[Rfam]
The record is an 86-nucleotide sequence from Nannochloris sp. 'desiccata', which matches "Selenocysteine transfer RNA" in Rfam. Its family is annotated with triplet codon-amino acid adaptor activity in the Gene Ontology. NCBI's taxonomy places the organism under Eukaryota, Trebouxiophyceae, Chlorellales, Chlorellaceae, Nannochloris. A reference for the family is Mizutani and Goto (2000), "Eukaryotic selenocysteine tRNA has the 9/4 secondary structure", FEBS Lett.

RNA sequence: GCCAGGGUGACCCCAGGCGGUCCUGGGUGCGGACUUCAAAUCCGUAGGUGCCGUGAGGCACAGAGGCUCGACUCCUCCUCCCCGGC
Number, nucleotide and partner (000 for none) at each position: 001g086002c085003c084004a000005g082006g081007g080008u000009g078010a000011c000012c027013c026014c025015a024016g023017g022018c000019g000020g000021u000022c017023c016024u015025g014026g013027g012028u046029g045030c044031g043032g042033a041034c000035u000036u000037c000038a000039a000040a000041u033042c032043c031044g030045u029046a028047g000048g061049u060050g059051c058052c057053g000054u000055g000056a000057g052058g051059c050060a049061c048062a000063g077064a076065g075066g074067c000068u000069c000070g000071a000072c000073u000074c066075c065076u064077c063078c009079u000080c007081c006082c005083c000084g003085g002086c001